[Rfam]
Shown here is a 63-nucleotide sequence from Microcebus murinus, a member of the family "U7 small nuclear RNA". The literature on the family includes a 1994 paper in Nucleic Acids Res by Spycher et al., "3' end processing of mouse histone pre-mRNA: evidence for additional base-pairing between U7 snRNA and pre-mRNA". Taxonomically the source falls in Microcebus (Eukaryota, Opisthokonta, Bilateria, Gnathostomata). The match comes from Rfam's covariance-model search (49 bits).
RNA sequence: UAGUGUUUCAGCUGUUUUAGAAUUUGUCUAGCAGAUUUUUUCAGUUCUCACCGGAAGAUCCCC
Numbered sequence: 001u002a003g004u005g006u007u008u009c010a011g012c013u014g015u016u017u018u019a020g021a022a023u024u025u026g027u028c029u030a031g032c033a034g035a036u037u038u039u040u041u042c043a044g045u046u047c048u049c050a051c052c053g054g055a056a057g058a059u060c061c062c063c
Stems, first nucleotide, its partner, number of pairs: 034060005040055003044051002